[Rfam]
RNA: Retrovirus direct repeat 1 (dr1)
RNA sequence: UGUAACGGGCAAGGCUUGACUGAGGGGACAAUAGCAUGUUUAGGCGAAAAGCGGGGCUUCGGUUGUACGCGGUUAGGAGUCCCCCCUCAGG
Number, nucleotide and partner (000 for none) at each position: 001u011002g010003u000004a000005a000006c000007g000008g000009g000010c002011a001012a000013g000014g000015c000016u000017u000018g000019a000020c000021u000022g087023a000024g084025g083026g082027g081028a080029c079030a000031a000032u000033a000034g000035c000036a000037u000038g000039u000040u000041u075042a074043g073044g000045c071046g070047a000048a000049a000050a000051g066052c065053g064054g063055g000056g000057c000058u000059u000060c000061g000062g000063u054064u053065g052066u051067a000068c000069g000070c046071g045072g000073u043074u042075a041076g000077g000078a000079g029080u028081c027082c026083c025084c024085c000086c000087u022088c000089a000090g000091g000